pan motif: a 94-nucleotide RNA sequence from Desulforamulus hydrothermalis. It scores 50 bits against the family's covariance model. NCBI's taxonomy places the organism under Bacteria, Bacillota, Clostridia, Peptococcaceae, Desulforamulus hydrothermalis. The family's RNA type in Rfam is cis-regulatory element.

[Rfam]
RNA sequence: CGGGUAGUAUCCCCCGGGGGAACUGCACCGCCUGUAGUUAAUUUAAAACCGCAAAGAUGUUUCCGCUUGGAACCAUACGGACCGAGACGGGAGG
Numbered sequence: 001c002g003g004g005u006a007g008u009a010u011c012c013c014c015c016g017g018g019g020g021a022a023c024u025g026c027a028c029c030g031c032c033u034g035u036a037g038u039u040a041a042u043u044u045a046a047a048a049c050c051g052c053a054a055a056g057a058u059g060u061u062u063c064c065g066c067u068u069g070g071a072a073c074c075a076u077a078c079g080g081a082c083c084g085a086g087a088c089g090g091g092a093g094g
Stems, first nucleotide, its partner, number of pairs: 001030003004026005010021002063090003066086005073080002